[Rfam]
RNA sequence: GAAUAGCCCUGAUAGAGGCGAUAGCUCUCGUUGAGUUUUUUUCGAAACGAGACUAAAGCCGAUAGCAGGAAUUGCG
Numbered sequence: 001g002a003a004u005a006g007c008c009c010u011g012a013u014a015g016a017g018g019c020g021a022u023a024g025c026u027c028u029c030g031u032u033g034a035g036u037u038u039u040u041u042u043c044g045a046a047a048c049g050a051g052a053c054u055a056a057a058g059c060c061g062a063u064a065g066c067a068g069g070a071a072u073u074g075c076g
Stems, first nucleotide, its partner, number of pairs: 009068003013064002018059002023054002027051005032044003
Annotation:
A member of the RNA family "Flavo-1 RNA" from Flavobacterium psychrophilum, 76 nucleotides long. The organism belongs to Flavobacterium psychrophilum, within Bacteria. The family's RNA type in Rfam is small RNA.